[Rfam]
RNA sequence: AGAAAAAAGCAGAAGCACCCGCUUCUCGCCUAGGGGAUAGUGGUCCUCGGGCAGAAUUACGAAAUAGCCUCACUGUGAUGUGGGGAGUAGUGGGUGUGUAGAAACACCCACUUUUUUUCUGCUUA
Numbered sequence: 001a002g003a004a005a006a007a008a009g010c011a012g013a014a015g016c017a018c019c020c021g022c023u024u025c026u027c028g029c030c031u032a033g034g035g036g037a038u039a040g041u042g043g044u045c046c047u048c049g050g051g052c053a054g055a056a057u058u059a060c061g062a063a064a065u066a067g068c069c070u071c072a073c074u075g076u077g078a079u080g081u082g083g084g085g086a087g088u089a090g091u092g093g094g095u096g097u098g099u100a101g102a103a104a105c106a107c108c109c110a111c112u113u114u115u116u117u118u119c120u121g122c123u124u125a
Base pairs, nucleotide, nucleotide: 011026012025013024014023015022016021028052029051030050034047035046036045037044038043089112090111091110092109093108094107095106096105097104
The family of this 125-nucleotide sequence from Ligilactobacillus pobuzihii is "Ribosomal protein L20 leader". By type it is a cis-regulatory leader. Gene Ontology term of the family: regulation of gene expression. Lineage of the source: Bacteria > Bacillati > Bacillota > Bacilli > Ligilactobacillus. A search with the family's covariance model found it, with a score of 74 bits.